Shown here is a 173-nucleotide RNA sequence, a member of the family "RAGATH-22 RNA". The base pairs follow the family's consensus structure, which is taken from published work. By type it is a small RNA.

RNA sequence: CUGAGAGUAUCCGAAAGGUCUCUCAGUCUCUUUAACCGUAUAUUUAGUUCUAGUUAAAAGAGACUAAUGCCACGAUUUGCUUAUUCGAAGAUAUAUAGUAGAAUAAUUUAUCUUGAAUUAACAAGAUACUCAAGAGCCUUGAGCCAGAGUGGAAAAUUCUGAGCCACUGAUCA
Numbered sequence: 001c002u003g004a005g006a007g008u009a010u011c012c013g014a015a016a017g018g019u020c021u022c023u024c025a026g027u028c029u030c031u032u033u034a035a036c037c038g039u040a041u042a043u044u045u046a047g048u049u050c051u052a053g054u055u056a057a058a059a060g061a062g063a064c065u066a067a068u069g070c071c072a073c074g075a076u077u078u079g080c081u082u083a084u085u086c087g088a089a090g091a092u093a094u095a096u097a098g099u100a101g102a103a104u105a106a107u108u109u110a111u112c113u114u115g116a117a118u119u120a121a122c123a124a125g126a127u128a129c130u131c132a133a134g135a136g137c138c139u140u141g142a143g144c145c146a147g148a149g150u151g152g153a154a155a156a157u158u159c160u161g162a163g164c165c166a167c168u169g170a171u172c173a
Base pairs, nucleotide, nucleotide: 001026002025003024004023005022006021007020011018012017027063028062029061030060031059032058033057036053038051040049084103085102086101109128110127111126112125113124114123115122143164144163145161146160147159149157150156